[Rfam]
RNA: Small nucleolar RNA Z266
RNA sequence: GAUGGCGAGAAGAAUGAUGAAUCAAUUAGAUGUGUGAAAGGAGAAAAAAUUGUGAUCGCAACAUCGAGGAUUAUUGAUAUUCUGACUUAUGCCAUC
Numbered sequence: 001g002a003u004g005g006c007g008a009g010a011a012g013a014a015u016g017a018u019g020a021a022u023c024a025a026u027u028a029g030a031u032g033u034g035u036g037a038a039a040g041g042a043g044a045a046a047a048a049a050u051u052g053u054g055a056u057c058g059c060a061a062c063a064u065c066g067a068g069g070a071u072u073a074u075u076g077a078u079a080u081u082c083u084g085a086c087u088u089a090u091g092c093c094a095u096c
Stems, first nucleotide, its partner, number of pairs: 001096007010088003